[Rfam]
RNA sequence: GGGGUCAUUGUAGAAGCGUGCUCGUUGUGACCCCUGCCAGCCCUUUUCAGGGCUGCAAUUU
Number, nucleotide and partner (000 for none) at each position: 001g034002g033003g032004g031005u030006c029007a000008u000009u000010g000011u000012a000013g000014a061015a060016g028017c027018g026019u000020g000021c000022u000023c000024g000025u000026u018027g017028u016029g006030a005031c004032c003033c002034c001035u000036g000037c000038c055039a054040g053041c052042c051043c050044u049045u000046u000047u000048c000049a044050g043051g042052g041053c040054u039055g038056c000057a000058a000059u000060u015061u014
The record is a 61-nucleotide RNA sequence from Parnassius apollo, which matches "Mammalian CPEB3 ribozyme" in Rfam. The organism belongs to Parnassius, within Eukaryota. The base pairs follow the family's consensus structure, which is taken from published work. Gene Ontology term of the family: RNA nuclease activity.